The family of this 65-nucleotide sequence from Owenia fusiformis is "Selenocysteine insertion sequence 1". The family's RNA type in Rfam is cis-regulatory element. It scores 42 bits against the family's covariance model. Pairs were carried over by alignment from the consensus structure, which is taken from published work.
RNA sequence: CUUGCAGCGUAUGACAACACCACCUUAAACCAUUUUGGCGAGGUGCUGUUUGAUGGUUCUGCAAG
Numbered sequence: 001c002u003u004g005c006a007g008c009g010u011a012u013g014a015c016a017a018c019a020c021c022a023c024c025u026u027a028a029a030c031c032a033u034u035u036u037g038g039c040g041a042g043g044u045g046c047u048g049u050u051u052g053a054u055g056g057u058u059c060u061g062c063a064a065g
Base pairs, nucleotide, nucleotide: 001065002064003063004062005061016050017049018048019047021045022044023043024042025041030038031037032036